[Rfam]
RNA sequence: CCACUCGGUGAAGAGGAGAUGGUCGAUUACAUCAUCACCGGCUUGGACCAUGAGUUCUUGUCGCUGGUGUCAGCUCUGGUGGCAAGACCGGAGCCUAUCUCCAUAGGGGAGCUAUAUGCCCAGAUGCUGACCUUUGAGA
Numbered sequence: 001c002c003a004c005u006c007g008g009u010g011a012a013g014a015g016g017a018g019a020u021g022g023u024c025g026a027u028u029a030c031a032u033c034a035u036c037a038c039c040g041g042c043u044u045g046g047a048c049c050a051u052g053a054g055u056u057c058u059u060g061u062c063g064c065u066g067g068u069g070u071c072a073g074c075u076c077u078g079g080u081g082g083c084a085a086g087a088c089c090g091g092a093g094c095c096u097a098u099c100u101c102c103a104u105a106g107g108g109g110a111g112c113u114a115u116a117u118g119c120c121c122a123g124a125u126g127c128u129g130a131c132c133u134u135u136g137a138g139a
Stems, first nucleotide, its partner, number of pairs: 004138005088108002092104001
This 139-nucleotide sequence from Setaria viridis belongs to the Rfam family "Small nucleolar RNA Z247". A search with the family's covariance model found it, with a score of 52 bits. Its family is annotated with RNA processing and nucleolus in the Gene Ontology. The family's RNA type in Rfam is C/D-box small nucleolar RNA. For this family Rfam cites "The high diversity of snoRNAs in plants: identification and comparative study of 120 snoRNA genes from Oryza sativa" (Chen et al., Nucleic Acids Res, 2003). The family has 8 seed sequences and 7,071 matches in Rfam 15.1.